[Rfam]
RNA sequence: UAUAACAACUCUUGCAGUCUUAGGCAUUAUAAAAAUAUAUAUCUGAAUUGUAAGAGUUGUUAGCAC
Number, nucleotide and partner (000 for none) at each position: 001u000002a000003u000004a061005a060006c000007a058008a057009c056010u055011c054012u053013u052014g051015c050016a049017g048018u047019c000020u046021u045022a044023g043024g042025c000026a040027u039028u000029a038030u037031a036032a000033a000034a000035a000036u031037a030038u029039a027040u026041a000042u024043c023044u022045g021046a020047a018048u017049u016050g015051u014052a013053a012054g011055a010056g009057u008058u007059g000060u005061u004062a000063g000064c000065a000066c000